Rfam assigns this 80-nucleotide sequence from Nelumbo nucifera to the family "Small nucleolar RNA R160".
Lineage of the source: Eukaryota > Streptophyta > Proteales > Nelumbonaceae > Nelumbo.
A reference for the family is Chen et al. (2003), "The high diversity of snoRNAs in plants: identification and comparative study of 120 snoRNA genes from Oryza sativa", Nucleic Acids Res.
From the family's description: snoR160 is a C/D box small nucleolar RNA, which acts as a methylation guide for 25S ribosomal RNA in plants. snoR160 has been alternatively named snoZ270 in rice.
It is annotated as a C/D-box small nucleolar RNA.

[Rfam]
RNA sequence: AGCAAAAUGAUGAGACUAUAUAUCUGAGCCAUCAGUGCUGAAAUGCAUAGCAUAAUUGCCUUCAAAGUUUUCUGAUUGCU
Numbered sequence: 001a002g003c004a005a006a007a008u009g010a011u012g013a014g015a016c017u018a019u020a021u022a023u024c025u026g027a028g029c030c031a032u033c034a035g036u037g038c039u040g041a042a043a044u045g046c047a048u049a050g051c052a053u054a055a056u057u058g059c060c061u062u063c064a065a066a067g068u069u070u071u072c073u074g075a076u077u078g079c080u
Stems, first nucleotide, its partner, number of pairs: 001080005